This 356-nucleotide sequence from Sphingopyxis lindanitolerans belongs to the Rfam family "Alphaproteobacteria transfer-messenger RNA". The match comes from Rfam's covariance-model search (239 bits). Bacterial tmRNA, also known as 10Sa RNA or SsrA, is named for its dual tRNA and mRNA-like properties. Its role is to liberate the mRNA from a stalled ribosome. The base pairs follow the family's consensus structure, which is taken from published work. For this family Rfam cites "Probing the structure of the Escherichia coli 10Sa RNA (tmRNA)" (Felden et al., RNA, 1997).
RNA sequence: GCUCUUUCCAAGCGCGGGCGGGUUUCCUAUAUAGGGGGUGCCGGUUUCGACCGGCUAUGGUGAUAAAUGGUGUCGUGGAAUAGACACAGCGGACCCGGGGGCAGUACCCGGCGGCUCCACCACAAUCCCGCCGAUCCGCAAGGAAAGGUGGGCUUCUGACGGGGCCGAACCAGGAUCGACGUGUGUUCAAAGACGAUAUUUUUGCCCGGGCUGAGUAACCCGUUCAAGGCUCAAAACCAAUAGGUGCUAACGAUAACGAAGCACUCGCUCUGGCUGCGUAACCGAUAAGCCUCACGGCCUAAGGUUAUUCAAAUAGAACGCGGUUCGGACCGAACCGGGCAACAGAAUCGGAUACC
Numbered sequence: 001g002c003u004c005u006u007u008c009c010a011a012g013c014g015c016g017g018g019c020g021g022g023u024u025u026c027c028u029a030u031a032u033a034g035g036g037g038g039u040g041c042c043g044g045u046u047u048c049g050a051c052c053g054g055c056u057a058u059g060g061u062g063a064u065a066a067a068u069g070g071u072g073u074c075g076u077g078g079a080a081u082a083g084a085c086a087c088a089g090c091g092g093a094c095c096c097g098g099g100g101g102c103a104g105u106a107c108c109c110g111g112c113g114g115c116u117c118c119a120c121c122a123c124a125a126u127c128c129c130g131c132c133g134a135u136c137c138g139c140a141a142g143g144a145a146a147g148g149u150g151g152g153c154u155u156c157u158g159a160c161g162g163g164g165c166c167g168a169a170c171c172a173g174g175a176u177c178g179a180c181g182u183g184u185g186u187u188c189a190a191a192g193a194c195g196a197u198a199u200u201u202u203u204g205c206c207c208g209g210g211c212u213g214a215g216u217a218a219c220c221c222g223u224u225c226a227a228g229g230c231u232c233a234a235a236a237c238c239a240a241u242a243g244g245u246g247c248u249a250a251c252g253a254u255a256a257c258g259a260a261g262c263a264c265u266c267g268c269u270c271u272g273g274c275u276g277c278g279u280a281a282c283c284g285a286u287a288a289g290c291c292u293c294a295c296g297g298c299c300u301a302a303g304g305u306u307a308u309u310c311a312a313a314u315a316g317a318a319c320g321c322g323g324u325u326c327g328g329a330c331c332g333a334a335c336c337g338g339g340c341a342a343c344a345g346a347a348u349c350g351g352a353u354a355c356c
Stems, first nucleotide, its partner, number of pairs: 040055005059206005070199007085185003089182003095111005112167007207222004212233003321337004327353001330350001332348001
The organism belongs to Sphingopyxis, within Bacteria.